[Rfam]
The family of this 227-nucleotide sequence from Scophthalmus maximus is "Small nucleolar RNA SNORA73 family". Clan: snR30-U17 clan. By type it is an H/ACA-box small nucleolar RNA. Rfam links the family to the GO terms RNA processing and nucleolus. The base pairs follow the family's consensus structure, which is taken from published work. U17 (SNORA73A and SNORA73B) also known as E1 belongs to the H/ACA class of small nucleolar RNAs (snoRNAs).
RNA sequence: CCGACGUGGACAUCCAGGGAGGUUGCUCUCCUUGGCUCUGUCCUGGUGGCGUAUGGGAGCGUAGCUCUUGAGGAGCCGAGACGUACAUUCCCGUUCCACGACGUCGGAGACGAAGCUCCGCCCCCCCGGCUCUGUCGGCGAGGGAACGAGCGUCCUGCAUAUUCCUACAUCUUCCCAGAGUCCUGAUGGGGCCGUGACUGGGGAGCUAAACCAUGCAGUGCACAAAC
Dot-bracket structure: ((((((((((((.(((.((((....))))...)))...)))))..((((.....(((((.((..(............)....)).)..))))...)))).)))))))...............................................((((((..........((((((...((((.....)))).......)))))).......)))))).........